[Rfam]
RNA: Rickettsia sRNA47
RNA sequence: UGAGCUUUAAACCGCGCUCAUUAUUGAGUGGCAGCACCGUCUGCACCGAACCCUUACCAAAGCUGUCGGUUCCCAUCACCACUGCUCGUUUAUGAUCUUGUAAAGCACCUGCCACAAUUUCUGAUGCAGAAGCACUGCCACCGUUAAUUAACACCACAAUUGGUACUCGGUGGCUGUAUUGCUUUUGCGUAGCGCUAAAGCUCAGGUCACUGUUAGGGAAGCGCCCCUUGGUGUACACAAUAAGACCACUAUCAAUAAAUAAGUCGGUUACCUCAACCGCCGCUUGUAACACCCCGCCCGGGUUAUUGCGGAG
Numbered sequence: 001u002g003a004g005c006u007u008u009a010a011a012c013c014g015c016g017c018u019c020a021u022u023a024u025u026g027a028g029u030g031g032c033a034g035c036a037c038c039g040u041c042u043g044c045a046c047c048g049a050a051c052c053c054u055u056a057c058c059a060a061a062g063c064u065g066u067c068g069g070u071u072c073c074c075a076u077c078a079c080c081a082c083u084g085c086u087c088g089u090u091u092a093u094g095a096u097c098u099u100g101u102a103a104a105g106c107a108c109c110u111g112c113c114a115c116a117a118u119u120u121c122u123g124a125u126g127c128a129g130a131a132g133c134a135c136u137g138c139c140a141c142c143g144u145u146a147a148u149u150a151a152c153a154c155c156a157c158a159a160u161u162g163g164u165a166c167u168c169g170g171u172g173g174c175u176g177u178a179u180u181g182c183u184u185u186u187g188c189g190u191a192g193c194g195c196u197a198a199a200g201c202u203c204a205g206g207u208c209a210c211u212g213u214u215a216g217g218g219a220a221g222c223g224c225c226c227c228u229u230g231g232u233g234u235a236c237a238c239a240a241u242a243a244g245a246c247c248a249c250u251a252u253c254a255a256u257a258a259a260u261a262a263g264u265c266g267g268u269u270a271c272c273u274c275a276a277c278c279g280c281c282g283c284u285u286g287u288a289a290c291a292c293c294c295c296g297c298c299c300g301g302g303u304u305a306u307u308g309c310g311g312a313g
Stems, first nucleotide, its partner, number of pairs: 004309002008305002012301002014174002018172001021169001023167001027164001029162003045070005053062003075086001077084002093140002096137001099134003105127003109123001111121001143154002180194004199207001201205001211291005216285002219269002222266001228258003232254002241248001274279001